[Rfam]
RNA sequence: UAAAAGGGUCGGUUGGCUAAAUAUGCCGCGCUCGCCCUAGACUAGUGAGUGCUGUAUGGCUAUCAAGACAUAUGGCCGACAUAAUUUGUGUAACCCCAUAGGGUUGGCUCGCUCGGCCGACCCUCCC
Numbered sequence: 001u002a003a004a005a006g007g008g009u010c011g012g013u014u015g016g017c018u019a020a021a022u023a024u025g026c027c028g029c030g031c032u033c034g035c036c037c038u039a040g041a042c043u044a045g046u047g048a049g050u051g052c053u054g055u056a057u058g059g060c061u062a063u064c065a066a067g068a069c070a071u072a073u074g075g076c077c078g079a080c081a082u083a084a085u086u087u088g089u090g091u092a093a094c095c096c097c098a099u100a101g102g103g104u105u106g107g108c109u110c111g112c113u114c115g116g117c118c119g120a121c122c123c124u125c126c127c
Stems, first nucleotide, its partner, number of pairs: 008080005014028004029051007052075007100124008109116002